[Rfam]
RNA sequence: AAGAUAACCUGAAAUGGAGGCAUUGGUGGUAUUUUGAUUCCAUAAGUGCUUCUCUUUGGGGUUGUCUUG
Numbered sequence: 001a002a003g004a005u006a007a008c009c010u011g012a013a014a015u016g017g018a019g020g021c022a023u024u025g026g027u028g029g030u031a032u033u034u035u036g037a038u039u040c041c042a043u044a045a046g047u048g049c050u051u052c053u054c055u056u057u058g059g060g061g062u063u064g065u066c067u068u069g
Base pairs, nucleotide, nucleotide: 004065005064006063007062008061009060010059014056016053017052018051019050020049021048022047023046024045026043027042028041

The family of this 69-nucleotide sequence from Merluccius polli is "miR-430 microRNA precursor family". Its family is annotated with RISC complex and miRNA-mediated post-transcriptional gene silencing in the Gene Ontology. Lineage of the source: Eukaryota > Craniata > Vertebrata > Gadariae > Merluccius. It scores 50 bits against the family's covariance model.